Fluoride riboswitch aptamer (crcB RNA motif): an 82-nucleotide sequence from Trichormus variabilis. Its family is annotated with response to fluoride and positive regulation of gene expression in the Gene Ontology. Pairs were carried over by alignment from the consensus structure, which is taken from published work. Taxonomically the source falls in Trichormus variabilis (Bacteria, Cyanobacteriota, Cyanophyceae, Nostocaceae). Rfam's curators put it in the seed alignment.
Nucleotides: 082
Stems, first nucleotide, its partner, number of pairs: 010025004016073006032063003
Number, partner (000 for none) and nucleotide at each position: 001000g002000u003000u004000a005000c006000u007000a008000a009000u010025g011024g012023c013022g014000a015000u016073g017072g018071a019070g020069u021068u022013c023012g024011c025010c026000c027000a028000a029000a030000c031000c032063g033062c034061u035000a036000u037000u038000c039000u040000a041000g042000u043000c044000a045000a046000a047000a048000a049000a050000u051000a052000a053000a054000u055000c056000u057000a058000g059000a060000a061034g062033g063032c064000u065000g066000a067000u068021g069020a070019c071018u072017c073016c074000u075000a076000c077000u078000a079000c080000u081000c082000u